[Rfam]
RNA sequence: ACCCAAGGGCCUUAGUCAGGGUGAUACUCGGUUGUUUUACACAAUCAAACAAAAAUGUUGCCUGUUAUGCCGUUGGAAAAAGAAUACAUCCCGCUCGUGUACCCCUGUUUCGAUUGGGUUCCGCUACCGUUUUGGUUUUGGAUUUGUAUACAUCGUUCGAUAGUUAUUAUCAAACAUCAAGGGAUCGUACGGGAUCUUAUGAGUUGAAGCCUUUCCAAAGAGUUUUUGCCCUUUGAAAUAUGAAAUGAUUCGUAGUAAAGAACCUGACACCA
Numbered sequence: 001a002c003c004c005a006a007g008g009g010c011c012u013u014a015g016u017c018a019g020g021g022u023g024a025u026a027c028u029c030g031g032u033u034g035u036u037u038u039a040c041a042c043a044a045u046c047a048a049a050c051a052a053a054a055a056u057g058u059u060g061c062c063u064g065u066u067a068u069g070c071c072g073u074u075g076g077a078a079a080a081a082g083a084a085u086a087c088a089u090c091c092c093g094c095u096c097g098u099g100u101a102c103c104c105c106u107g108u109u110u111c112g113a114u115u116g117g118g119u120u121c122c123g124c125u126a127c128c129g130u131u132u133u134g135g136u137u138u139u140g141g142a143u144u145u146g147u148a149u150a151c152a153u154c155g156u157u158c159g160a161u162a163g164u165u166a167u168u169a170u171c172a173a174a175c176a177u178c179a180a181g182g183g184a185u186c187g188u189a190c191g192g193g194a195u196c197u198u199a200u201g202a203g204u205u206g207a208a209g210c211c212u213u214u215c216c217a218a219a220g221a222g223u224u225u226u227u228g229c230c231c232u233u234u235g236a237a238a239u240a241u242g243a244a245a246u247g248a249u250u251c252g253u254a255g256u257a258a259a260g261a262a263c264c265u266g267a268c269a270c271c272a
Base pairs, nucleotide, nucleotide: 003076004075005074006073019063020062021061022060023059024058025057026056028054034042088185089184090183091182092181097151098150099149100148101147102146104141105140157173159171160170161169162168163167190266191265192264193263195261196260197259198258205252206251207250208249212245213244214243215242216235217234218233219232220231222229
RNA: Small nucleolar RNA snR191